[Rfam]
RNA sequence: AUGCCUUAAACUGAUGAGUAAGGAAAACAACGACGGGGGCUGACUCCCUUGUCCGUGCUAACGCAGCAUCGGGAAUUUUUUGGACGGGCAACAGGUCUGCCGGUGCGGACGAGUCGCCUACUUUGCGAGAUGUCGCGCUGGUACUCGAUCUGCCCU
Numbered sequence: 001a002u003g004c005c006u007u008a009a010a011c012u013g014a015u016g017a018g019u020a021a022g023g024a025a026a027a028c029a030a031c032g033a034c035g036g037g038g039g040c041u042g043a044c045u046c047c048c049u050u051g052u053c054c055g056u057g058c059u060a061a062c063g064c065a066g067c068a069u070c071g072g073g074a075a076u077u078u079u080u081u082g083g084a085c086g087g088g089c090a091a092c093a094g095g096u097c098u099g100c101c102g103g104u105g106c107g108g109a110c111g112a113g114u115c116g117c118c119u120a121c122u123u124u125g126c127g128a129g130a131u132g133u134c135g136c137g138c139u140g141g142u143a144c145u146c147g148a149u150c151u152g153c154c155c156u
Stems, first nucleotide, its partner, number of pairs: 004023005032053008055069004086155004093151005099145001101140002104137005114128004
This 156-nucleotide RNA sequence from Denticeps clupeoides belongs to the Rfam family "U12 minor spliceosomal RNA". NCBI's taxonomy places the organism under Eukaryota, Teleostomi, Osteoglossocephalai, Otomorpha, Denticeps. By type it is a spliceosomal small nuclear RNA.